[Rfam]
RNA sequence: CAUCUUGCGCGGACGAAGCGCAAUCCCUAUCUCUGGAGGUGCCGGUUUUCCGGCUAUGUCGGUAGAGUAUCGAGUGGAAUAGGCAUAUCGGACCCGGGGGGCAGUACCCCGGCGCCUCCACCACCAGCCGCGAGGCCUUCGAAGGCCCGGACGCGGUUGCUGAUGGGGGCGAAACAGGAUCGACGAAUGCAGUAAAGGCUCGGUUGCCGAUCGGUAUGAGACCACCGCGACGGCUCAUUUUCACAAGUGCCAACGAUAACGAGGCGCUCGCUAUUGCUGCGUAACCGACGGUCUAACGACUAAGGUUACAAGGUAUUAAGCGCGGUCGGACCCCACCGGGCAACAGAAGGGGAUUCC
Numbered sequence: 001c002a003u004c005u006u007g008c009g010c011g012g013a014c015g016a017a018g019c020g021c022a023a024u025c026c027c028u029a030u031c032u033c034u035g036g037a038g039g040u041g042c043c044g045g046u047u048u049u050c051c052g053g054c055u056a057u058g059u060c061g062g063u064a065g066a067g068u069a070u071c072g073a074g075u076g077g078a079a080u081a082g083g084c085a086u087a088u089c090g091g092a093c094c095c096g097g098g099g100g101g102c103a104g105u106a107c108c109c110c111g112g113c114g115c116c117u118c119c120a121c122c123a124c125c126a127g128c129c130g131c132g133a134g135g136c137c138u139u140c141g142a143a144g145g146c147c148c149g150g151a152c153g154c155g156g157u158u159g160c161u162g163a164u165g166g167g168g169g170c171g172a173a174a175c176a177g178g179a180u181c182g183a184c185g186a187a188u189g190c191a192g193u194a195a196a197g198g199c200u201c202g203g204u205u206g207c208c209g210a211u212c213g214g215u216a217u218g219a220g221a222c223c224a225c226c227g228c229g230a231c232g233g234c235u236c237a238u239u240u241u242c243a244c245a246a247g248u249g250c251c252a253a254c255g256a257u258a259a260c261g262a263g264g265c266g267c268u269c270g271c272u273a274u275u276g277c278u279g280c281g282u283a284a285c286c287g288a289c290g291g292u293c294u295a296a297c298g299a300c301u302a303a304g305g306u307u308a309c310a311a312g313g314u315a316u317u318a319a320g321c322g323c324g325g326u327c328g329g330a331c332c333c334c335a336c337c338g339g340g341c342a343a344c345a346g347a348a349g350g351g352g353a354u355u356c357c
Base pairs, nucleotide, nucleotide: 041054042053043052044051045050058211059210060209061208062207069204070203071202072201073200074199075198084189085188086187088186089185090184094112095111096110097109098108113171114170115169116168117167118166119165212227213226214225215224217237218236219235222233223232323338324337325336326335329355330354332352333351334350